[Rfam]
RNA sequence: GAGUGCUACAGCUCUUUCAGAAUUUACCUAGCAGAUUUUUCAGUUUUUACUAGAAAAACCAGU
Numbered sequence: 001g002a003g004u005g006c007u008a009c010a011g012c013u014c015u016u017u018c019a020g021a022a023u024u025u026a027c028c029u030a031g032c033a034g035a036u037u038u039u040u041c042a043g044u045u046u047u048u049a050c051u052a053g054a055a056a057a058a059c060c061a062g063u
Stems, first nucleotide, its partner, number of pairs: 034060001036058006042051003